[Rfam]
RNA sequence: GAACACAUCAAAGAAUCGCUAUCAGAGCAAAACACACGGAGUGGCAAGACUAAGAGAUGUCAAAUAUUGUGUUCGUUCACCUUAUUUCCAUCUCGCGUCUUUUCCCUCACUUUAUGCUUUGGGGAAAGUCCCCGGACUCUCCGACAGAAAGUGUCACCCAUAAAGUCGGUCUUACCUCUUCUUCCACCCUGCUUAAAUCAAAGACAUGUGAGAUUAUAGUGGAGUCGGACUAGAAGAGGCGUUGGUCAUUUUGAAUAGUGAUGCGAUUGCGGUUCCUGUGCUUCGUUAGAGGCACAGAAGGCGUAACUCAAUGGGGCUUACUCUUGAGGUGUU
Numbered sequence: 001g002a003a004c005a006c007a008u009c010a011a012a013g014a015a016u017c018g019c020u021a022u023c024a025g026a027g028c029a030a031a032a033c034a035c036a037c038g039g040a041g042u043g044g045c046a047a048g049a050c051u052a053a054g055a056g057a058u059g060u061c062a063a064a065u066a067u068u069g070u071g072u073u074c075g076u077u078c079a080c081c082u083u084a085u086u087u088c089c090a091u092c093u094c095g096c097g098u099c100u101u102u103u104c105c106c107u108c109a110c111u112u113u114a115u116g117c118u119u120u121g122g123g124g125a126a127a128g129u130c131c132c133c134g135g136a137c138u139c140u141c142c143g144a145c146a147g148a149a150a151g152u153g154u155c156a157c158c159c160a161u162a163a164a165g166u167c168g169g170u171c172u173u174a175c176c177u178c179u180u181c182u183u184c185c186a187c188c189c190u191g192c193u194u195a196a197a198u199c200a201a202a203g204a205c206a207u208g209u210g211a212g213a214u215u216a217u218a219g220u221g222g223a224g225u226c227g228g229a230c231u232a233g234a235a236g237a238g239g240c241g242u243u244g245g246u247c248a249u250u251u252u253g254a255a256u257a258g259u260g261a262u263g264c265g266a267u268u269g270c271g272g273u274u275c276c277u278g279u280g281c282u283u284c285g286u287u288a289g290a291g292g293c294a295c296a297g298a299a300g301g302c303g304u305a306a307c308u309c310a311a312u313g314g315g316g317c318u319u320a321c322u323c324u325u326g327a328g329g330u331g332u333u
Stems, first nucleotide, its partner, number of pairs: 002333005008327004014268006022122007044103001126319003130316004143155004156170003160166002173239001178236005188228002199224001213220002270303002273300002
A member of the RNA family "RNase MRP" from Paraglomus brasilianum, 333 nucleotides long. Its Rfam clan is "RNaseP clan". By type it is a ribozyme. The base pairs follow the family's consensus structure, which is taken from published work.